[Rfam]
RNA sequence: GAGCUGUGAUGAAAUUGGCUUAAACAAAGGUUGGGUCCUUUGCACUCAUCUGAUAUUCAGCUGAUAUCGCCGCACCUGAGCUC
Numbered sequence: 001g002a003g004c005u006g007u008g009a010u011g012a013a014a015u016u017g018g019c020u021u022a023a024a025c026a027a028a029g030g031u032u033g034g035g036u037c038c039u040u041u042g043c044a045c046u047c048a049u050c051u052g053a054u055a056u057u058c059a060g061c062u063g064a065u066a067u068c069g070c071c072g073c074a075c076c077u078g079a080g081c082u083c
Base pairs, nucleotide, nucleotide: 001083002082003081004080
RNA: small nucleolar RNA snoR114
Organism: Brassica rapa